RNA: TPP riboswitch aptamer (THI element)
Organism: Lactovum miscens
RNA sequence: CAUAUGCACAAUGGGUCUUUUGAGGUGACAGUCAAAUAUAAUAACUGCUAUCCAAAAGUGAGAAAUACCAUCUGACCUGAUCGAGAUAAUGCUCGCGUAGGAAUGUGAAUUUUUUCAACU
Numbered sequence: 001c002a003u004a005u006g007c008a009c010a011a012u013g014g015g016u017c018u019u020u021u022g023a024g025g026u027g028a029c030a031g032u033c034a035a036a037u038a039u040a041a042u043a044a045c046u047g048c049u050a051u052c053c054a055a056a057a058g059u060g061a062g063a064a065a066u067a068c069c070a071u072c073u074g075a076c077c078u079g080a081u082c083g084a085g086a087u088a089a090u091g092c093u094c095g096c097g098u099a100g101g102a103a104u105g106u107g108a109a110u111u112u113u114u115u116c117a118a119c120u
Stems, first nucleotide, its partner, number of pairs: 007107004011071004016065001017058005076101004082095004